[Rfam]
RNA sequence: AGGGAAUGUCUCCUUACCGUUACCAAUGGAGGCACUCGAUCAUGCUGUGGGUUUUUAUACCUUAGACGCUUGUCGUCAAAAGUGUGGUGUGAGGGAGGGUUAAAUGCCCU
Numbered sequence: 001a002g003g004g005a006a007u008g009u010c011u012c013c014u015u016a017c018c019g020u021u022a023c024c025a026a027u028g029g030a031g032g033c034a035c036u037c038g039a040u041c042a043u044g045c046u047g048u049g050g051g052u053u054u055u056u057a058u059a060c061c062u063u064a065g066a067c068g069c070u071u072g073u074c075g076u077c078a079a080a081a082g083u084g085u086g087g088u089g090u091g092a093g094g095g096a097g098g099g100u101u102a103a104a105u106g107c108c109c110u
Stems, first nucleotide, its partner, number of pairs: 002018002007034007035093004039088008049062004065077004096110005
Record summary: A member of the RNA family "epsC RNA" from Metabacillus arenae, 110 nucleotides long. The organism belongs to Metabacillus, within Bacteria. The base pairs follow the family's consensus structure, which is taken from published work.